[Rfam]
Nucleotides: 068
Base pairs, nucleotide, nucleotide: 006022007021008020009019034051035050036049041062042061
Number, partner (000 for none) and nucleotide at each position: 001000u002000c003000g004000a005000a006022g007021u008020u009019g010000a011000g012000u013000u014000u015000g016000a017000c018000a019009c020008a021007a022006c023000u024000u025000u026000a027000a028000a029000a030000a031000c032000a033000g034051g035050g036049c037000g038000g039000a040000a041062u042061c043000u044000g045000a046000a047000a048000a049036g050035c051034c052000a053000u054000a055000u056000g057000a058000g059000u060000a061042g062041g063000a064000g065000g066000u067000c068000a

The family of this 68-nucleotide RNA from Flavobacterium terrae is "DUF805 RNA". The base pairs follow the family's consensus structure, which is taken from published work. Lineage of the source: Bacteria > Pseudomonadati > Bacteroidota > Flavobacteriales > Flavobacterium. The match comes from Rfam's covariance-model search (61 bits). Rfam classes the family as a cis-regulatory element.